S15-Flavobacteria ribosomal protein leader: a 68-nucleotide sequence. By type it is a cis-regulatory leader. The literature on the family includes a 2020 paper in BMC Microbiol by Eckert and Weinberg, "Discovery of 20 novel ribosomal leader candidates in bacteria and archaea".
RNA sequence: UAUCUUUGCACCCGAAUAAGGAUACUCUUUAUUCAUACAUAAUAAUCAUUUAAAAUAAUAUUAAAAUG
Numbered sequence: 001u002a003u004c005u006u007u008g009c010a011c012c013c014g015a016a017u018a019a020g021g022a023u024a025c026u027c028u029u030u031a032u033u034c035a036u037a038c039a040u041a042a043u044a045a046u047c048a049u050u051u052a053a054a055a056u057a058a059u060a061u062u063a064a065a066a067u068g
Base pairs, nucleotide, nucleotide: 014034015033016032017031018030019029020028021027